[Rfam]
RNA sequence: GGUCCAAUGCCACGUCGCCGAUAGCUAUGAUCGCGAUGAUCGGCGAUGCUAUGAUUGGUACCAAGAUCAAAUUUUGAUAUGUUUCGCAUCUUGAUAGGAAUCCGUUGAUCUUUUUCCCAUGGUUACUCGGAGCCGAUUUGUGCGAUUACAGUU
Numbered sequence: 001g002g003u004c005c006a007a008u009g010c011c012a013c014g015u016c017g018c019c020g021a022u023a024g025c026u027a028u029g030a031u032c033g034c035g036a037u038g039a040u041c042g043g044c045g046a047u048g049c050u051a052u053g054a055u056u057g058g059u060a061c062c063a064a065g066a067u068c069a070a071a072u073u074u075u076g077a078u079a080u081g082u083u084u085c086g087c088a089u090c091u092u093g094a095u096a097g098g099a100a101u102c103c104g105u106u107g108a109u110c111u112u113u114u115u116c117c118c119a120u121g122g123u124u125a126c127u128c129g130g131a132g133c134c135g136a137u138u139u140g141u142g143c144g145a146u147u148a149c150a151g152u153u
Stems, first nucleotide, its partner, number of pairs: 002061002004058005009052001013048006020041003024034002084145005097134002102130003106125005